[Rfam]
RNA sequence: UUUGGGGGAAAUAGUAGUAUGUUAAGUUGAGGAAAAAGACAUCAUCCCUUGAGGUAAAAUUAGGUUUGCUUCCUUUUACUCUCAAAAUCUUUUUACCGUGGGUAAAAAGAAUCAUCAUGGGGGUAUAAAAGGAACCAAAUUUAAAUUUAAAUCAAGGGAUCUUAAUGUCAUUUUUCCCAACAGGACAGAUCACUAUUUUCCCCAAG
Numbered sequence: 001u002u003u004g005g006g007g008g009a010a011a012u013a014g015u016a017g018u019a020u021g022u023u024a025a026g027u028u029g030a031g032g033a034a035a036a037a038g039a040c041a042u043c044a045u046c047c048c049u050u051g052a053g054g055u056a057a058a059a060u061u062a063g064g065u066u067u068g069c070u071u072c073c074u075u076u077u078a079c080u081c082u083c084a085a086a087a088u089c090u091u092u093u094u095a096c097c098g099u100g101g102g103u104a105a106a107a108a109g110a111a112u113c114a115u116c117a118u119g120g121g122g123g124u125a126u127a128a129a130a131g132g133a134a135c136c137a138a139a140u141u142u143a144a145a146u147u148u149a150a151a152u153c154a155a156g157g158g159a160u161c162u163u164a165a166u167g168u169c170a171u172u173u174u175u176c177c178c179a180a181c182a183g184g185a186c187a188g189a190u191c192a193c194u195a196u197u198u199u200c201c202c203c204a205a206g
Stems, first nucleotide, its partner, number of pairs: 003204013017190002020187004026181004031176005041166002044163001045159003049155004055149004060144009070134007077125008089109009
RNA: MIR2670 microRNA precursor family